Shown here is a 97-nucleotide RNA sequence from Segatella oulorum, a member of the family "Purine riboswitch aptamer".
The base pairs follow the family's consensus structure, which is taken from published work.
The family is grouped with related families in Rfam's "Purine riboswitches".

RNA sequence: GCCUACUUUUGCACCCACUAUCGUAUAGGUUUGUAAUGGGUCAGACGUUUCUACCUGCUGCCGCAAACAGCAGUCUAUGAUAGUUCUUUUUUAAUGU
Numbered sequence: 001g002c003c004u005a006c007u008u009u010u011g012c013a014c015c016c017a018c019u020a021u022c023g024u025a026u027a028g029g030u031u032u033g034u035a036a037u038g039g040g041u042c043a044g045a046c047g048u049u050u051c052u053a054c055c056u057g058c059u060g061c062c063g064c065a066a067a068c069a070g071c072a073g074u075c076u077a078u079g080a081u082a083g084u085u086c087u088u089u090u091u092u093a094a095u096g097u
Stems, first nucleotide, its partner, number of pairs: 018083008029046005055073006